[Rfam]
RNA sequence: UAAGACAAGUAGAAGCACCCGCUUCUCACCAGAUUGACGCCUUGGUGCAGUUGACUGGUUCCAAUUAUGCUUUGAUGUAAUGGAGAUGUGUGGGUGCAAUGUGUGCCGACACUUUUUUUAAUGA
Number, nucleotide and partner (000 for none) at each position: 001u000002a000003a000004g000005a000006c000007a000008a000009g000010u000011a026012g025013a024014a023015g022016c021017a000018c000019c000020c000021g016022c015023u014024u013025c012026u011027c000028a059029c058030c057031a000032g000033a000034u000035u000036g052037a051038c050039g048040c047041c000042u000043u000044g000045g000046u000047g040048c039049a000050g038051u037052u036053g000054a000055c000056u000057g030058g029059u028060u000061c000062c000063a000064a000065u000066u000067a000068u000069g000070c000071u000072u000073u000074g000075a000076u000077g000078u000079a000080a000081u000082g000083g000084a000085g000086a000087u000088g000089u111090g110091u109092g000093g107094g106095u105096g104097c103098a102099a000100u000101g000102u098103g097104u096105g095106c094107c093108g000109a091110c090111a089112c000113u000114u000115u000116u000117u000118u000119u000120a000121a000122u000123g000124a000
The record is a 124-nucleotide RNA sequence from Compostibacillus humi, which matches "Ribosomal protein L20 leader" in Rfam. A reference for the family is Zengel and Lindahl (1994), "Diverse mechanisms for regulating ribosomal protein synthesis in Escherichia coli", Prog Nucleic Acid Res Mol Biol. A search with the family's covariance model found it, with a score of 71 bits. Taxonomically the source falls in Compostibacillus (Bacteria, Bacillati, Bacillota, Bacillaceae). The family's consensus secondary structure was predicted with CMfinder. Rfam's curators write: This family is a putative r-protein leader autoregulatory structure found in B. subtilis and other low-GC Gram-positive bacteria.